The record is a 255-nucleotide sequence from Carpediemonas membranifera, which matches "Nuclear RNase P" in Rfam.
Ribonuclease P (RNase P) is a ubiquitous endoribonuclease, found in archaea, bacteria and eukarya as well as chloroplasts and mitochondria. Its best characterised activity is the generation of mature 5'-ends of tRNAs by cleaving the 5'-leader elements of precursor-tRNAs.
Rfam links the family to the GO terms tRNA processing, ribonuclease P complex and ribonuclease P activity.
By type it is a ribozyme.
Nucleotides: 255
Stems, first nucleotide, its partner, number of pairs: 001255004007249003012205007021036006045239005050181003061075005076091004081086001093178007115165003207226006
Number, partner (000 for none) and nucleotide at each position: 001255g002254a003253c004252g005000u006000c007249g008248g009247a010000a011000g012205c013204c014203c015202g016201u017200g018199c019000c020000a021036g022035g023034g024033c025032g026031c027000g028000c029000g030000a031026g032025c033024g034023c035022u036021c037000g038000g039000g040000a041000a042000g043000g044000u045239c046238u047237g048236a049235g050181u051180u052179c053000g054000a055000c056000a057000g058000u059000g060000a061075g062074c063073u064072g065071c066000g067000a068000g069000a070000g071065g072064c073063a074062g075061u076091c077090g078089g079088c080000a081086c082000g083000a084000a085000a086081g087000c088079g089078c090077c091076g092000c093178u094177g095176c096175a097174g098173g099172c100000a101000c102000u103000a104000g105000a106000a107000a108000g109000c110000a111000c112000c113000g114000c115165c116164g117163c118000u119000u120000g121000c122000u123000c124000g125000u126000u127000g128000g129000c130000a131000g132000a133000u134000g135000a136000g137000g138000c139000c140000c141000c142000g143000g144000c145000c146000g147000a148000u149000g150000c151000u152000u153000a154000g155000a156000g157000c158000u159000c160000g161000c162000g163117g164116c165115g166000c167000u168000g169000g170000a171000a172099g173098c174097c175096u176095g177094c178093a179052g180051a181050a182000g183000u184000a185000u186000c187000u188000a189000u190000c191000a192000g193000u194000c195000a196000a197000a198000u199018g200017c201016a202015c203014g204013g205012g206000g207226c208225u209224g210223c211222u212221g213000g214000g215000c216000u217000c218000u219000c220000c221212c222211a223210g224209u225208a226207g227000a228000a229000a230000c231000a232000c233000a234000a235049u236048u237047c238046a239045g240000a241000c242000u243000a244000c245000u246000c247009u248008c249007c250000g251000a252004c253003g254002u255001c